[Rfam]
RNA sequence: CUGAUCACUUCAAAUAGAGCCACUCGUGAUUUCUGUCUUCAUAAGUGCUUCUUUUGGGGUUGUCUUG
Numbered sequence: 001c002u003g004a005u006c007a008c009u010u011c012a013a014a015u016a017g018a019g020c021c022a023c024u025c026g027u028g029a030u031u032u033c034u035g036u037c038u039u040c041a042u043a044a045g046u047g048c049u050u051c052u053u054u055u056g057g058g059g060u061u062g063u064c065u066u067g
Stems, first nucleotide, its partner, number of pairs: 004063002007060005014054001016052004021047004026042003
Record summary:
miR-430 microRNA precursor family: a 67-nucleotide RNA from Lates calcarifer. Its Rfam clan is "mir-290 clan". On this family, see Giraldez et al., Science 2005: "MicroRNAs regulate brain morphogenesis in zebrafish". The family has 32 seed sequences and 24,817 matches in Rfam 15.1.